[Rfam]
RNA sequence: AAUACCUUUUAAGAGUUGUCCAGAGAGGCACAGAAGGGUGAUUCGAUACGAUAAGCAUGCAUAUAGUAUACAAGCUUAUUUUGUCAUAUCCUUCAAAAGCCUCCUUGAAAUUACAAGGAGGCUUUUAGUUU
Numbered sequence: 001a002a003u004a005c006c007u008u009u010u011a012a013g014a015g016u017u018g019u020c021c022a023g024a025g026a027g028g029c030a031c032a033g034a035a036g037g038g039u040g041a042u043u044c045g046a047u048a049c050g051a052u053a054a055g056c057a058u059g060c061a062u063a064u065a066g067u068a069u070a071c072a073a074g075c076u077u078a079u080u081u082u083g084u085c086a087u088a089u090c091c092u093u094c095a096a097a098a099g100c101c102u103c104c105u106u107g108a109a110a111u112u113a114c115a116a117g118g119a120g121g122c123u124u125u126u127a128g129u130u131u
Stems, first nucleotide, its partner, number of pairs: 005037005017030004050080007058072002061069002095126013
Dot-bracket structure: ....(((((.......((((......))))..)))))............(((((((.((.((.....)).)).)))))))..............(((((((((((((......))))))))))))).....
RNA: PyrR binding site